This 75-nucleotide RNA sequence from Manihot esculenta belongs to the Rfam family "Small nucleolar RNA R160". Rfam's curators write: snoR160 is a C/D box small nucleolar RNA, which acts as a methylation guide for 25S ribosomal RNA in plants. snoR160 has been alternatively named snoZ270 in rice. A search with the family's covariance model found it, with a score of 50 bits.

RNA sequence: AGCGAAAAUGAUGAGCUCGUUUAAAUCUGAAUUCGGGUGUGGAAUCGCGAUUGUCUUCAAAGUUCUCUGAUUGCU
Numbered sequence: 001a002g003c004g005a006a007a008a009u010g011a012u013g014a015g016c017u018c019g020u021u022u023a024a025a026u027c028u029g030a031a032u033u034c035g036g037g038u039g040u041g042g043a044a045u046c047g048c049g050a051u052u053g054u055c056u057u058c059a060a061a062g063u064u065c066u067c068u069g070a071u072u073g074c075u
Stems, first nucleotide, its partner, number of pairs: 001075003005072002